RNA sequence: GGCCUCGCCUGCAACUGACGGAACAAGUGGGCAAACCACGGGGGAGCAGGCAAUGGGGCUUUUUAUGCCGACCGUCUGGGCAGUAUCC
Numbered sequence: 001g002g003c004c005u006c007g008c009c010u011g012c013a014a015c016u017g018a019c020g021g022a023a024c025a026a027g028u029g030g031g032c033a034a035a036c037c038a039c040g041g042g043g044g045a046g047c048a049g050g051c052a053a054u055g056g057g058g059c060u061u062u063u064u065a066u067g068c069c070g071a072c073c074g075u076c077u078g079g080g081c082a083g084u085a086u087c088c
Stems, first nucleotide, its partner, number of pairs: 003055001005053001007051006015043002017076005027039004066082004
RNA: ZMP/ZTP riboswitch aptamer (pfl RNA motif)
Organism: Anaerofilum sp. An201